A member of the RNA family "let-7 microRNA precursor family" from Sorex araneus, 76 nucleotides long. Its Rfam clan is "let-7 microRNA precursor clan". This family represents the microRNAs (miRNA) let-7 and mir-98. let-7 was identified from a study of developmental timing in C. elegans, and was later shown to be part of a much larger class of non-coding RNAs termed miRNAs. It is one of the family's seed sequences. Its family is annotated with miRNA-mediated post-transcriptional gene silencing and RISC complex in the Gene Ontology. Rfam 15.1 lists 8,694 matches to the family in 797 species.
RNA sequence: CCAGGUUGAGGUAGUGGGUUGUAUAGUUCAGAAUCACAUCAAGGGAGAUAACUGUACAGCCUCCUAGCUUGCCUUG
Numbered sequence: 001c002c003a004g005g006u007u008g009a010g011g012u013a014g015u016g017g018g019u020u021g022u023a024u025a026g027u028u029c030a031g032a033a034u035c036a037c038a039u040c041a042a043g044g045g046a047g048a049u050a051a052c053u054g055u056a057c058a059g060c061c062u063c064c065u066a067g068c069u070u071g072c073c074u075u076g
Stems, first nucleotide, its partner, number of pairs: 001076001003074004008070003012066003016062012040047001